The family of this 89-nucleotide sequence from Pseudidiomarina taiwanensis is "t44 RNA". Lineage of the source: Bacteria > Pseudomonadati > Pseudomonadota > Gammaproteobacteria > Pseudidiomarina. Rfam classes the family as a small RNA. On this family, see Tjaden et al., Nucleic Acids Res 2002: "Transcriptome analysis of Escherichia coli using high-density oligonucleotide probe arrays". From the family's description: This family consists of a number of bacterial RNA genes of between 135 and 170 bases in length. The t44 gene has been identified in several species of enteric bacteria but homologs have also been identified in Pseudomonas and Coxiella species. The t44 gene is found between the map and rpsB genes in all species in the full alignment apart from Shigella flexneri. The function of this RNA is unknown.
RNA sequence: GUCCGUAAUUUGUAAUAACACACAUAUACCGACACAUCGCUCGGGGUGCUCUUAAAUGGGUCGAACGGUGGGGUAUAUGGAGGCAUAAC
Numbered sequence: 001g002u003c004c005g006u007a008a009u010u011u012g013u014a015a016u017a018a019c020a021c022a023c024a025u026a027u028a029c030c031g032a033c034a035c036a037u038c039g040c041u042c043g044g045g046g047u048g049c050u051c052u053u054a055a056a057u058g059g060g061u062c063g064a065a066c067g068g069u070g071g072g073g074u075a076u077a078u079g080g081a082g083g084c085a086u087a088a089c
Stems, first nucleotide, its partner, number of pairs: 023079008035070005041064003048061004